RNA sequence: GCCCUAUUGUCCUGCAAGUCGCUCUGGAUAAGAGCGUCUGCUAAAUGCAUGUAA
Numbered sequence: 001g002c003c004c005u006a007u008u009g010u011c012c013u014g015c016a017a018g019u020c021g022c023u024c025u026g027g028a029u030a031a032g033a034g035c036g037u038c039u040g041c042u043a044a045a046u047g048c049a050u051g052u053a054a
Stems, first nucleotide, its partner, number of pairs: 013043001014041003020036006
UnaL2 LINE 3' element: a 54-nucleotide sequence from Megalops atlanticus. A search with the family's covariance model found it, with a score of 57 bits. The family's consensus secondary structure is taken from published work. Lineage of the source: Eukaryota > Metazoa > Bilateria > Teleostomi > Megalops.